[Rfam]
This 267-nucleotide sequence from Paenibacillus solanacearum belongs to the Rfam family "glmS glucosamine-6-phosphate activated ribozyme aptamer". The family's RNA type in Rfam is riboswitch. Lineage of the source: Bacteria > Bacillota > Bacilli > Paenibacillaceae > Paenibacillus. Pairs were carried over by alignment from the consensus structure, which is taken from published work.
RNA sequence: GUUUCCAUUGAAGCGCCAGAACUUGUGCAAGCAUCUGGUGUUAUUGCGGCUGUUGCAGUCCGGUCUUAAGUUUGCUUUGUUAUAAGCAAACUUGUUCUACUUCUUCUGACGACGCAAAGGUUGCAUAACAUUCAGCGCGGAUCAAGUUGACGAGGUGAAGGUGUUCGAAUUUUUCGGCGGGGGCCUUCCGGUAGCGAUCCAACACCGUUAAGUCGAAACGCAAAACGUCCGGGCGACCGGGCCGACAAACGUUCGGCAGGAUCAAAG
Numbered sequence: 001g002u003u004u005c006c007a008u009u010g011a012a013g014c015g016c017c018a019g020a021a022c023u024u025g026u027g028c029a030a031g032c033a034u035c036u037g038g039u040g041u042u043a044u045u046g047c048g049g050c051u052g053u054u055g056c057a058g059u060c061c062g063g064u065c066u067u068a069a070g071u072u073u074g075c076u077u078u079g080u081u082a083u084a085a086g087c088a089a090a091c092u093u094g095u096u097c098u099a100c101u102u103c104u105u106c107u108g109a110c111g112a113c114g115c116a117a118a119g120g121u122u123g124c125a126u127a128a129c130a131u132u133c134a135g136c137g138c139g140g141a142u143c144a145a146g147u148u149g150a151c152g153a154g155g156u157g158a159a160g161g162u163g164u165u166c167g168a169a170u171u172u173u174u175c176g177g178c179g180g181g182g183g184c185c186u187u188c189c190g191g192u193a194g195c196g197a198u199c200c201a202a203c204a205c206c207g208u209u210a211a212g213u214c215g216a217a218a219c220g221c222a223a224a225a226c227g228u229c230c231g232g233g234c235g236a237c238c239g240g241g242c243c244g245a246c247a248a249a250c251g252u253u254c255g256g257c258a259g260g261a262u263c264a265a266a267g
Stems, first nucleotide, its partner, number of pairs: 020148006157188005165177004189207004194203001212257006227242006